[Rfam]
Nucleotides: 130
Base pairs, nucleotide, nucleotide: 011039016035017034018033019032020031021030068123069122070121071120072119073118083110084109086103088101089100
Number, partner (000 for none) and nucleotide at each position: 001000c002000a003000g004000c005000a006000u007000g008000g009000c010000u011039u012000c013000a014000a015000g016035g017034g018033c019032u020031g021030u022000g023000g024000c025000u026000u027000g028000a029000a030021g031020u032019a033018g034017c035016u036000a037000c038000a039011g040000g041000g042000u043000c044000u045000c046000c047000a048000a049000c050000u051000a052000c053000a054000u055000g056000c057000g058000a059000g060000a061000a062000c063000a064000u065000g066000c067000u068123g069122g070121a071120a072119a073118g074000a075000c076000u077000u078000u079000g080000a081000c082000a083110g084109c085000u086103c087000u088101g089100g090000u091000c092000a093000c094000c095000u096000c097000g098000u099000a100089u101088c102000u103086g104000a105000a106000g107000c108000u109084g110083c111000c112000a113000c114000u115000c116000a117000a118073c119072u120071u121070u122069c123068c124000u125000a126000u127000a128000u129000u130000c
The record is a 130-nucleotide RNA from Monodelphis domestica, which matches "Small nucleolar RNA SNORA44" in Rfam.
Lineage of the source: Eukaryota > Bilateria > Gnathostomata > Tetrapoda > Monodelphis.
Rfam's curators put it in the seed alignment.
The family's RNA type in Rfam is H/ACA-box small nucleolar RNA.